The family of this 129-nucleotide RNA sequence from Rhinopithecus roxellana is "U8 small nucleolar RNA". Pairs were carried over by alignment from the consensus structure, which is taken from published work.
[Rfam]
RNA sequence: UUGUCAGGUGGGAUAAUCCUUACCUCUGUCUGGAGGACAGUAUUAGGACAUGACGAUUGGAGUCACAUGAUAUGAUUAAUAUCUGCUGCAUAAUCAGGACUCACAACACCCUGAUUGCUCCUAUCUGAU
Numbered sequence: 001u002u003g004u005c006a007g008g009u010g011g012g013a014u015a016a017u018c019c020u021u022a023c024c025u026c027u028g029u030c031u032g033g034a035g036g037a038c039a040g041u042a043u044u045a046g047g048a049c050a051u052g053a054c055g056a057u058u059g060g061a062g063u064c065a066c067a068u069g070a071u072a073u074g075a076u077u078a079a080u081a082u083c084u085g086c087u088g089c090a091u092a093a094u095c096a097g098g099a100c101u102c103a104c105a106a107c108a109c110c111c112u113g114a115u116u117g118c119u120c121c122u123a124u125c126u127g128a129u
Stems, first nucleotide, its partner, number of pairs: 026040006069086001070082003073078001091117008